tRNA: a 73-nucleotide sequence from Deinococcus ruber. The match comes from Rfam's covariance-model search (70 bits). The family's consensus secondary structure is taken from published work. From the family's description: Transfer RNA (tRNA) molecules are approximately 80 nucleotides in length. Their secondary structure includes four short double-helical elements and three loops (D, anti-codon, and T loops).
[Rfam]
RNA sequence: GGUUCGGUAGUGUAGCGGUUAGCAUAUCUGCCUGUCACGCAGAAGGUCGCGGGUUCAAAUCCCGUCCGAACCG
Numbered sequence: 001g002g003u004u005c006g007g008u009a010g011u012g013u014a015g016c017g018g019u020u021a022g023c024a025u026a027u028c029u030g031c032c033u034g035u036c037a038c039g040c041a042g043a044a045g046g047u048c049g050c051g052g053g054u055u056c057a058a059a060u061c062c063c064g065u066c067c068g069a070a071c072c073g
Base pairs, nucleotide, nucleotide: 001072002071003070004069005068006067007066010025011024012023013022027043028042029041030040031039049065050064051063052062053061